[Rfam]
RNA sequence: AGGCGUGAUGACGCCGAGGACACCUGAGCGGUGAUGACUCUUCGCUUCGCUGACC
Numbered sequence: 001a002g003g004c005g006u007g008a009u010g011a012c013g014c015c016g017a018g019g020a021c022a023c024c025u026g027a028g029c030g031g032u033g034a035u036g037a038c039u040c041u042u043c044g045c046u047u048c049g050c051u052g053a054c055c
Stems, first nucleotide, its partner, number of pairs: 006052002010048002013045002016043005021033002
A member of the RNA family "Small nucleolar RNA sR45" from Thermococcus kodakarensis, 55 nucleotides long. The family's consensus secondary structure was predicted with WAR. For this family Rfam cites "Homologs of small nucleolar RNAs in Archaea" (Omer et al., Science, 2000). It is annotated as a C/D-box small nucleolar RNA.